[Rfam]
RNA sequence: GGCGAUAAAUUGCGGUGUGCAAUAGGCACAGCGGACCCGGGGGCGGUACCCGGCGGCUCCACCACCUUCCUCGGUCUCCGGGGAAUAUGACGGGGCCGAACUAGGAUCGACGUGUGUUGAAAAGCACUGUUUUCGCCCGGGCUGAGUAACCCGUUAAAGGCUCAAAACUCACAAGUGCCAACGACAACGAAGCACUUGCUCUCGCUGCAUAA
Numbered sequence: 001g002g003c004g005a006u007a008a009a010u011u012g013c014g015g016u017g018u019g020c021a022a023u024a025g026g027c028a029c030a031g032c033g034g035a036c037c038c039g040g041g042g043g044c045g046g047u048a049c050c051c052g053g054c055g056g057c058u059c060c061a062c063c064a065c066c067u068u069c070c071u072c073g074g075u076c077u078c079c080g081g082g083g084a085a086u087a088u089g090a091c092g093g094g095g096c097c098g099a100a101c102u103a104g105g106a107u108c109g110a111c112g113u114g115u116g117u118u119g120a121a122a123a124g125c126a127c128u129g130u131u132u133u134c135g136c137c138c139g140g141g142c143u144g145a146g147u148a149a150c151c152c153g154u155u156a157a158a159g160g161c162u163c164a165a166a167a168c169u170c171a172c173a174a175g176u177g178c179c180a181a182c183g184a185c186a187a188c189g190a191a192g193c194a195c196u197u198g199c200u201c202u203c204g205c206u207g208c209a210u211a212a
Stems, first nucleotide, its partner, number of pairs: 001137005015127004027116003031113003037053005054098007138153004